Rfam assigns this 258-nucleotide RNA sequence from Metabacillus sediminilitoris to the family "BsrG". Rfam's curators write: bsrE, bsrG and bsrH pair through intermolecular interactions with antisense sRNAs. They form type I toxin/antitoxin system that includes an mRNA encoding for a short, toxic peptide (bsrE, bsrG and bsrH) and an antitoxin that is comprised of an antisense RNA. bsrG encodes a 39-amino-acid toxin, and the 180 nucleotide antisense sRNA called SR4 acts as the antitoxin (they overlap by 123 nucleotides). SR4 interaction with the 3'UTR of bsrG RNA promotes bsrG degradation and inhibits its translation. The base pairs follow the family's consensus structure, which was predicted with WAR. Rfam classes the family as a small RNA.

RNA sequence: UACAGUAGUUAGGUAAACUCAAGGGUGGUCAGCAUUACCCCGAAAAGAUUGGGGGUGAUGCUUAUGAUGACAGUAUUUCAAACGUUCAUGCUAAUGAUCGCAUUUGCUAGUUUGGUGUUGUCCCUCAUAUCUUUUAGAGACAAAAAAUAACCACCCUUGAGCGUUGGAGUGCAAUAGGGUGAGUUAUUUACCUUAACACGCUGAUCCCCUUGAAGGGAACCUGCUAUUGUAUGGCUGUUUGGUGUAUGAGCACCAAAC
Numbered sequence: 001u002a003c004a005g006u007a008g009u010u011a012g013g014u015a016a017a018c019u020c021a022a023g024g025g026u027g028g029u030c031a032g033c034a035u036u037a038c039c040c041c042g043a044a045a046a047g048a049u050u051g052g053g054g055g056u057g058a059u060g061c062u063u064a065u066g067a068u069g070a071c072a073g074u075a076u077u078u079c080a081a082a083c084g085u086u087c088a089u090g091c092u093a094a095u096g097a098u099c100g101c102a103u104u105u106g107c108u109a110g111u112u113u114g115g116u117g118u119u120g121u122c123c124c125u126c127a128u129a130u131c132u133u134u135u136a137g138a139g140a141c142a143a144a145a146a147a148u149a150a151c152c153a154c155c156c157u158u159g160a161g162c163g164u165u166g167g168a169g170u171g172c173a174a175u176a177g178g179g180u181g182a183g184u185u186a187u188u189u190a191c192c193u194u195a196a197c198a199c200g201c202u203g204a205u206c207c208c209c210u211u212g213a214a215g216g217g218a219a220c221c222u223g224c225u226a227u228u229g230u231a232u233g234g235c236u237g238u239u240u241g242g243u244g245u246a247u248g249a250g251c252a253c254c255a256a257a258c
Stems, first nucleotide, its partner, number of pairs: 001231005007225003014204001016202001018161008027152003032061003036057005069122007083096002171191001173189001205218004237258009